The record is a 73-nucleotide RNA sequence from Hornefia porci, which matches "tRNA" in Rfam.
Gene Ontology term of the family: triplet codon-amino acid adaptor activity.
The family's RNA type in Rfam is transfer RNA.
RNA sequence: GCUCAGAUAGCUCAGUAGGUAGAGCAGAGGACUGAAAAUCCUCGUGUCCUUGGUUCAAUUCCGAGUCUGAGCA
Number, nucleotide and partner (000 for none) at each position: 001g072002c071003u070004c069005a068006g067007a066008u000009a000010g025011c024012u023013c022014a000015g000016u000017a000018g000019g000020u000021a000022g013023a012024g011025c010026a000027g043028a042029g041030g040031a039032c000033u000034g000035a000036a000037a000038a000039u031040c030041c029042u028043c027044g000045u000046g000047u000048c000049c065050u064051u063052g062053g061054u000055u000056c000057a000058a000059u000060u000061c053062c052063g051064a050065g049066u007067c006068u005069g004070a003071g002072c001073a000
It scores 70 bits against the family's covariance model.